[Rfam]
Nucleotides: 108
Stems, first nucleotide, its partner, number of pairs: 009093002011059004017031005038053005064089004070083004
Number, partner (000 for none) and nucleotide at each position: 001000u002000u003000a004000a005000a006000a007000a008000c009093a010092c011059a012058g013057g014056g015000g016000a017031g018030c019029u020028u021027g022000u023000g024000g025000a026000g027021c028020a029019g030018g031017c032000u033000g034000a035000g036000a037000g038053g039052a040051a041050g042049u043000a044000a045000u046000c047000a048000a049042a050041c051040u052039u053038c054000g055000a056014c057013c058012c059011u060000u061000u062000a063000a064089c065088c066087u067086g068000a069000u070083g071082c072081g073080g074000a075000u076000a077000a078000u079000g080073c081072c082071g083070c084000c085000g086067u087066a088065g089064g090000a091000a092010g093009u094000c095000a096000a097000a098000a099000g100000g101000g102000a103000u104000g105000a106000a107000c108000u